RNA sequence: CCAAAUCAGUUCCCUGUUCAGUACCAAGGACAGGUGUGUUUACCUGUGUGUGGAUGGUGUUCAGUACCAAGGACAGAUUUGUUUACCU
Numbered sequence: 001c002c003a004a005a006u007c008a009g010u011u012c013c014c015u016g017u018u019c020a021g022u023a024c025c026a027a028g029g030a031c032a033g034g035u036g037u038g039u040u041u042a043c044c045u046g047u048g049u050g051u052g053g054a055u056g057g058u059g060u061u062c063a064g065u066a067c068c069a070a071g072g073a074c075a076g077a078u079u080u081g082u083u084u085a086c087c088u
Stems, first nucleotide, its partner, number of pairs: 004079004009074002015069002017064002020061007028049001030047007

This 88-nucleotide RNA from Branchiostoma belcheri belongs to the Rfam family "mir-2060 microRNA precursor family". The match comes from Rfam's covariance-model search (66 bits).